[Rfam]
RNA sequence: UGGUAGAUGCACCCUGAUAACUAAUUCCCCCGGCGGCUGCCACCACUGGGGGAUUUUUUU
Numbered sequence: 001u002g003g004u005a006g007a008u009g010c011a012c013c014c015u016g017a018u019a020a021c022u023a024a025u026u027c028c029c030c031c032g033g034c035g036g037c038u039g040c041c042a043c044c045a046c047u048g049g050g051g052g053a054u055u056u057u058u059u060u
Base pairs, nucleotide, nucleotide: 002013003012004011027052028051029050030049031048032047033046035044036043